[Rfam]
Shown here is a 59-nucleotide RNA sequence from Cutibacterium acnes, a member of the family "msiK RNA". The family's consensus secondary structure is taken from published work.
RNA sequence: GUCACCGAUUUUCCACAACGGAUCGUCGGGCACGUACCUGCCCGUGGAAAGGAACAACG
Numbered sequence: 001g002u003c004a005c006c007g008a009u010u011u012u013c014c015a016c017a018a019c020g021g022a023u024c025g026u027c028g029g030g031c032a033c034g035u036a037c038c039u040g041c042c043c044g045u046g047g048a049a050a051g052g053a054a055c056a057a058c059g
Stems, first nucleotide, its partner, number of pairs: 009051007027044006